[Rfam]
RNA sequence: GGGUCGGCUUUAGCUCAAGCGGUUACUUCCUCACGCUGGACUUAUCAUCUGUCUACAUCCUGCGCUGGGGUUCGAGACCCGCGGGUGCUUUCUGACCCUUUU
Numbered sequence: 001g002g003g004u005c006g007g008c009u010u011u012a013g014c015u016c017a018a019g020c021g022g023u024u025a026c027u028u029c030c031u032c033a034c035g036c037u038g039g040a041c042u043u044a045u046c047a048u049c050u051g052u053c054u055a056c057a058u059c060c061u062g063c064g065c066u067g068g069g070g071u072u073c074g075a076g077a078c079c080c081g082c083g084g085g086u087g088c089u090u091u092c093u094g095a096c097c098c099u100u101u102u
Base pairs, nucleotide, nucleotide: 002097003096004095005094006093007092013086014085015084016083019082020081021080022079027076028075029074

Record summary: Rfam assigns this 102-nucleotide RNA sequence from Cavia porcellus to the family "Vault RNA". The family's RNA type in Rfam is non-coding RNA gene. Pairs were carried over by alignment from the consensus structure, which is taken from published work. Lineage of the source: Eukaryota > Metazoa > Eumetazoa > Chordata > Cavia. The sequence is in the family's curated seed alignment.